[Rfam]
The family of this 98-nucleotide RNA sequence from an Actinomycetales bacterium is "ZMP/ZTP riboswitch aptamer (pfl RNA motif)". The source organism's lineage runs through Bacteria, Bacillati, Actinomycetota, Actinomycetes and Actinomycetales. Its family is annotated with regulation of purine nucleotide biosynthetic process and one-carbon metabolic process in the Gene Ontology.

RNA sequence: GGUGGUCGGCGCGACUGGCGUUGAGGUGGACAUCCACCAGGGAGCCCGACCUCCGCACGACUGCACCAGACAAGGGACCGUUCGCCUGGGCCCCGCGU
Numbered sequence: 001g002g003u004g005g006u007c008g009g010c011g012c013g014a015c016u017g018g019c020g021u022u023g024a025g026g027u028g029g030a031c032a033u034c035c036a037c038c039a040g041g042g043a044g045c046c047c048g049a050c051c052u053c054c055g056c057a058c059g060a061c062u063g064c065a066c067c068a069g070a071c072a073a074g075g076g077a078c079c080g081u082u083c084g085c086c087u088g089g090g091c092c093c094c095g096c097g098u
Stems, first nucleotide, its partner, number of pairs: 002053001004051006011045002015041002017086004026037004075093002078090002